RNA sequence: UAAAAUAUUUUUCAAAAAAAAAGGUUCACCCAGGACGAGGCUCAGCCAUUGCACUCCGGUUGUGCUGACCCCUGCGAAUUCCCCAAAUGUGGGAAUCUCGACUGCAUUAUUUCUGGUAGUGGGGGACUGCGUUCGCGCUCUCCCCUG
Numbered sequence: 001u002a003a004a005a006u007a008u009u010u011u012u013c014a015a016a017a018a019a020a021a022a023g024g025u026u027c028a029c030c031c032a033g034g035a036c037g038a039g040g041c042u043c044a045g046c047c048a049u050u051g052c053a054c055u056c057c058g059g060u061u062g063u064g065c066u067g068a069c070c071c072c073u074g075c076g077a078a079u080u081c082c083c084c085a086a087a088u089g090u091g092g093g094a095a096u097c098u099c100g101a102c103u104g105c106a107u108u109a110u111u112u113c114u115g116g117u118a119g120u121g122g123g124g125g126a127c128u129g130c131g132u133u134c135g136c137g138c139u140c141u142c143c144c145c146u147g
Base pairs, nucleotide, nucleotide: 001028003026005025006024008022009021032073033072034071037069039066040065041064043062044061045060046059047058075100076099077098078096079095080094082092083091121146122145123144124143125142126141129138130137131136
RNA: U1 spliceosomal RNA
Organism: Synaphobranchus kaupii